[Rfam]
RNA sequence: UAAAUUUUAUACAGCACCACUCGUAUAUACUCGGUAAUAUGGUCCGAGUGUUUCUACCAGGUUCCCUUUAAAGAACCGGACUACGGGUUGAAGUAUCGGGUCA
Numbered sequence: 001u002a003a004a005u006u007u008u009a010u011a012c013a014g015c016a017c018c019a020c021u022c023g024u025a026u027a028u029a030c031u032c033g034g035u036a037a038u039a040u041g042g043u044c045c046g047a048g049u050g051u052u053u054c055u056a057c058c059a060g061g062u063u064c065c066c067u068u069u070a071a072a073g074a075a076c077c078g079g080a081c082u083a084c085g086g087g088u089u090g091a092a093g094u095a096u097c098g099g100g101u102c103a
Stems, first nucleotide, its partner, number of pairs: 019088007029049006058079001060077005

Purine riboswitch aptamer: a 103-nucleotide RNA sequence from Planococcus salinus. Taxonomically the source falls in Planococcus (Bacteria, Bacilli, Caryophanales, Caryophanaceae). Riboswitches are metabolite binding domains within certain messenger RNAs that serve as precision sensors for their corresponding targets.